Rfam assigns this 371-nucleotide RNA from Crypturellus soui to the family "ncRNA Repressor of NFAT (nuclear factor of activated T cells)".
Taxonomically the source falls in Crypturellus (Eukaryota, Tetrapoda, Coelurosauria, Tinamidae).
Rfam classes the family as a non-coding RNA gene.

[Rfam]
RNA sequence: GUCCCCCCGCGGCUCCGCCACUUUGACACCUCCCUCGCACGCUGCACUAAUCCAUAUAAGAAAUUCUCUUUUAAUGAGGAGUGAUACAGUUAUGAACUCUCCAGAGCCAUAAUUAGAGCAAACUAAUUGAAGUUGUGUUUUGACACACUUUCCAAAUUCACGGGUACUGCAUGACAUAUUCACAACACUGCUGCUGCACAGCCAUGGCGACAGCAAAAUCAUUAGGCUAAUAACACUUAUUUGCAUUCUUAUCAUGCCAGCAGCACGCCGUUAAACACGGCUUCAACCGGCGCUCGCUUACUCUGAAAGUUUCCACUGAAAGAUAUUAACAGUAAUUAUUAGUACUUUAGUGGAAUCUCUAAUGUUAAGGA
Numbered sequence: 001g002u003c004c005c006c007c008c009g010c011g012g013c014u015c016c017g018c019c020a021c022u023u024u025g026a027c028a029c030c031u032c033c034c035u036c037g038c039a040c041g042c043u044g045c046a047c048u049a050a051u052c053c054a055u056a057u058a059a060g061a062a063a064u065u066c067u068c069u070u071u072u073a074a075u076g077a078g079g080a081g082u083g084a085u086a087c088a089g090u091u092a093u094g095a096a097c098u099c100u101c102c103a104g105a106g107c108c109a110u111a112a113u114u115a116g117a118g119c120a121a122a123c124u125a126a127u128u129g130a131a132g133u134u135g136u137g138u139u140u141u142g143a144c145a146c147a148c149u150u151u152c153c154a155a156a157u158u159c160a161c162g163g164g165u166a167c168u169g170c171a172u173g174a175c176a177u178a179u180u181c182a183c184a185a186c187a188c189u190g191c192u193g194c195u196g197c198a199c200a201g202c203c204a205u206g207g208c209g210a211c212a213g214c215a216a217a218a219u220c221a222u223u224a225g226g227c228u229a230a231u232a233a234c235a236c237u238u239a240u241u242u243g244c245a246u247u248c249u250u251a252u253c254a255u256g257c258c259a260g261c262a263g264c265a266c267g268c269c270g271u272u273a274a275a276c277a278c279g280g281c282u283u284c285a286a287c288c289g290g291c292g293c294u295c296g297c298u299u300a301c302u303c304u305g306a307a308a309g310u311u312u313c314c315a316c317u318g319a320a321a322g323a324u325a326u327u328a329a330c331a332g333u334a335a336u337u338a339u340u341a342g343u344a345c346u347u348u349a350g351u352g353g354a355a356u357c358u359c360u361a362a363u364g365u366u367a368a369g370g371a
Stems, first nucleotide, its partner, number of pairs: 045364002048361002051354005058347003066081006086339001088337006097106003116295004129151004134147005163269002167263001192209005213257003226244002229241004